RNA sequence: CUUCCUCAGCCUUACUCCAGGGGCUCUUGGUUUUUGUAGAGCGCCCUGGCAUUGCCUGAGGAUAAAUUGAAAAUGUGUUCGUUUCCCCCCCCAGUCAGAUUCACAGUAUCCGCUGGGGCCUGCCAUUUGAGCAGACAUU
Numbered sequence: 001c002u003u004c005c006u007c008a009g010c011c012u013u014a015c016u017c018c019a020g021g022g023g024c025u026c027u028u029g030g031u032u033u034u035u036g037u038a039g040a041g042c043g044c045c046c047u048g049g050c051a052u053u054g055c056c057u058g059a060g061g062a063u064a065a066a067u068u069g070a071a072a073a074u075g076u077g078u079u080c081g082u083u084u085c086c087c088c089c090c091c092c093a094g095u096c097a098g099a100u101u102c103a104c105a106g107u108a109u110c111c112g113c114u115g116g117g118g119c120c121u122g123c124c125a126u127u128u129g130a131g132c133a134g135a136c137a138u139u
Stems, first nucleotide, its partner, number of pairs: 003062007011054001017049006023042005076133003080129002089118006096112001098110002
Rfam assigns this 139-nucleotide RNA sequence from Columbina picui to the family "Small nucleolar RNA SNORA49". Pairs were carried over by alignment from the consensus structure, which was predicted with RNAalifold. Rfam 15.1 lists 722 matches to the family in 550 species. The match comes from Rfam's covariance-model search (112 bits). The snoRNA ACA49 has no identified RNA target. NB genomic sequence 1-nt different from published.